[Rfam]
RNA sequence: UCGGUCGCGAGGCCGAAUCUGAAGGAAGCCGGAGGCAAACCCUCGGUCUGACGAACAGAAAUCACAUAUAAGGCAUGGUGAGACGGACGAGCUUGCAAACCAAAGUAAAGUCCAAUACUGCCCGAACCUCAUCAUGUAGAUGUGGCGGAUGGAUGAGGGGAAAGUUAUCGCU
Number, nucleotide and partner (000 for none) at each position: 001u016002c015003g014004g013005u012006c011007g000008c000009g000010a000011g006012g005013c004014c003015g002016a001017a000018u000019c000020u000021g000022a000023a000024g000025g000026a000027a000028g172029c000030c170031g169032g168033a000034g000035g165036c164037a000038a000039a000040c159041c158042c157043u156044c155045g154046g150047u149048c148049u147050g146051a000052c000053g000054a000055a000056c000057a000058g000059a000060a000061a000062u145063c144064a143065c142066a141067u140068a000069u000070a000071a000072g000073g137074c136075a135076u000077g133078g132079u131080g130081a129082g128083a000084c000085g113086g112087a111088c110089g000090a000091g106092c105093u104094u103095g000096c000097a000098a000099a000100c000101c000102a000103a094104a093105g092106u091107a000108a000109a000110g088111u087112c086113c085114a000115a000116u000117a000118c000119u000120g000121c000122c000123c000124g000125a000126a000127c000128c082129u081130c080131a079132u078133c077134a000135u075136g074137u073138a000139g000140a067141u066142g065143u064144g063145g062146c050147g049148g048149a047150u046151g000152g000153a000154u045155g044156a043157g042158g041159g040160g000161a000162a000163a000164g036165u035166u000167a000168u032169c031170g030171c000172u028
A member of the RNA family "Group II catalytic intron D1-D4-3" from Paenibacillus thalictri, 172 nucleotides long. The match comes from Rfam's covariance-model search (155 bits). Pairs were carried over by alignment from the consensus structure.